[Rfam]
RNA sequence: GGCAGCGGGAGUCCGGCUCCCGUGCCCUCAGGGCACGAGGAAAGUCCCCCCACCGUGCGGGCAGGCGACCGGGCCCACGCCCGGGACGGGCGACCGCCGGCACUCGAACAGAAACGAGACCGCGCGGCCCGACCAACGAGGUGUGCGACCCCCACGCGAUGAAGGUCUGCGGCCCGCCGUCGCAAGGCACGCGGGUCGAAGGCCGGUCAAGCACGGGGAAGACCCCACCGAGGGCCGACGGCCGCGAACGGAUGGAACGGCGACCCUCGCCGGUGCAAGUCCGCGCGACAGGUAGUCCGACACCACCGCCACACGGCGAGCACCCUCACGGGUGACGGCGCGGACGCUCAGCCGAAUGCCGGAUCGAACAGAAGGGGGCUUACUCCCCGCAGCC
Numbered sequence: 001g002g003c004a005g006c007g008g009g010a011g012u013c014c015g016g017c018u019c020c021c022g023u024g025c026c027c028u029c030a031g032g033g034c035a036c037g038a039g040g041a042a043a044g045u046c047c048c049c050c051c052a053c054c055g056u057g058c059g060g061g062c063a064g065g066c067g068a069c070c071g072g073g074c075c076c077a078c079g080c081c082c083g084g085g086a087c088g089g090g091c092g093a094c095c096g097c098c099g100g101c102a103c104u105c106g107a108a109c110a111g112a113a114a115c116g117a118g119a120c121c122g123c124g125c126g127g128c129c130c131g132a133c134c135a136a137c138g139a140g141g142u143g144u145g146c147g148a149c150c151c152c153c154a155c156g157c158g159a160u161g162a163a164g165g166u167c168u169g170c171g172g173c174c175c176g177c178c179g180u181c182g183c184a185a186g187g188c189a190c191g192c193g194g195g196u197c198g199a200a201g202g203c204c205g206g207u208c209a210a211g212c213a214c215g216g217g218g219a220a221g222a223c224c225c226c227a228c229c230g231a232g233g234g235c236c237g238a239c240g241g242c243c244g245c246g247a248a249c250g251g252a253u254g255g256a257a258c259g260g261c262g263a264c265c266c267u268c269g270c271c272g273g274u275g276c277a278a279g280u281c282c283g284c285g286c287g288a289c290a291g292g293u294a295g296u297c298c299g300a301c302a303c304c305a306c307c308g309c310c311a312c313a314c315g316g317c318g319a320g321c322a323c324c325c326u327c328a329c330g331g332g333u334g335a336c337g338g339c340g341c342g343g344a345c346g347c348u349c350a351g352c353c354g355a356a357u358g359c360c361g362g363a364u365c366g367a368a369c370a371g372a373a374g375g376g377g378g379c380u381u382a383c384u385c386c387c388c389g390c391a392g393c394c
Stems, first nucleotide, its partner, number of pairs: 001394003005390005010384002012363006021037005042381003046378005051275004064271005069084005085098001087096003099266002104263003120251003123246007141228002279345008